The family of this 91-nucleotide sequence is "Rhodo-rpoB RNA".

[Rfam]
RNA sequence: UUGUCGGGAGGCGCCGGUGGGACGGUUGCCACGAAUAGACAUGAAACCCCCUGUCAAAUGGGUGUAUUUUCGCGGCCCGGGCGAAGGUACA
Numbered sequence: 001u002u003g004u005c006g007g008g009a010g011g012c013g014c015c016g017g018u019g020g021g022a023c024g025g026u027u028g029c030c031a032c033g034a035a036u037a038g039a040c041a042u043g044a045a046a047c048c049c050c051c052u053g054u055c056a057a058a059u060g061g062g063u064g065u066a067u068u069u070u071c072g073c074g075g076c077c078c079g080g081g082c083g084a085a086g087g088u089a090c091a
Base pairs, nucleotide, nucleotide: 002041003040004039005038010030011029012028013026014025015024016023063091064090065089066088067087068086069085070084071083072082

Pairs were carried over by alignment from the consensus structure, which is taken from published work.
By type it is a cis-regulatory element.
It is one of the family's seed sequences.